[Rfam]
RNA: Clostridiales-2 RNA
RNA sequence: AAAAUUAAGGGGGUGUGGGGAACAUCCCCUGCCGCUUUAAAGGAAGGUGUUCAGAUUGCAUUAGCAAUCGUCGAAGGGAAC
Number, nucleotide and partner (000 for none) at each position: 001a000002a000003a000004a000005u000006u000007a000008a000009g000010g000011g000012g000013g000014u000015g032016u031017g030018g029019g027020g026021a025022a000023c000024a000025u021026c020027c019028c000029c018030u017031g016032c015033c000034g000035c000036u000037u000038u000039a000040a000041a000042g000043g000044a000045a000046g000047g000048u000049g000050u000051u000052c000053a000054g069055a068056u067057u066058g065059c000060a000061u000062u000063a000064g000065c058066a057067a056068u055069c054070g000071u000072c000073g000074a000075a000076g000077g000078g000079a000080a000081c000